Rfam assigns this 105-nucleotide RNA to the family "SAM-I/IV (S-adenosyl methionine) riboswitch aptamer". Its family is annotated with S-adenosylmethionine metabolic process and regulation of gene expression in the Gene Ontology. The family is grouped with related families in Rfam's "SAM clan". Pairs were carried over by alignment from the consensus structure, which is taken from published work.
[Rfam]
RNA sequence: UUCGGACAUCAAGAGUAGGGCUGACGCCCUCGCCAACCUGCCUACCCGGCAAGGUGGUGCUCCGAAAGGAGGAUGUGGCCAUAGACGGCAACUAAAGGGUCUAAG
Numbered sequence: 001u002u003c004g005g006a007c008a009u010c011a012a013g014a015g016u017a018g019g020g021c022u023g024a025c026g027c028c029c030u031c032g033c034c035a036a037c038c039u040g041c042c043u044a045c046c047c048g049g050c051a052a053g054g055u056g057g058u059g060c061u062c063c064g065a066a067a068g069g070a071g072g073a074u075g076u077g078g079c080c081a082u083a084g085a086c087g088g089c090a091a092c093u094a095a096a097g098g099g100u101c102u103a104a105g
Stems, first nucleotide, its partner, number of pairs: 006076005015031001017030005032058003037054003040050003044100004078089003